[Rfam]
RNA: Y RNA
Nucleotides: 102
Base pairs, nucleotide, nucleotide: 001098002097003096004095005094006093007092008091010090014086016081017080018079019078020077022076028064029063030062032060033059
Number, partner (000 for none) and nucleotide at each position: 001098g002097g003096c004095u005094g006093g007092u008091c009000c010090a011000a012000g013000u014086g015000u016081a017080g018079u019078g020077g021000u022076g023000u024000u025000u026000a027000c028064a029063a030062c031000u032060a033059a034000u035000u036000g037000a038000u039000c040000a041000c042000a043000a044000c045000c046000a047000g048000u049000u050000a051000c052000a053000g054000g055000u056000u057000u058000c059033u060032u061000g062030g063029u064028u065000u066000c067000u068000u069000c070000u071000u072000c073000a074000c075000u076022c077020c078019c079018a080017c081016u082000g083000c084000u085000u086014c087000a088000u089000c090010u091008g092007a093006c094005u095004a096003g097002c098001c099000u100000a101000u102000a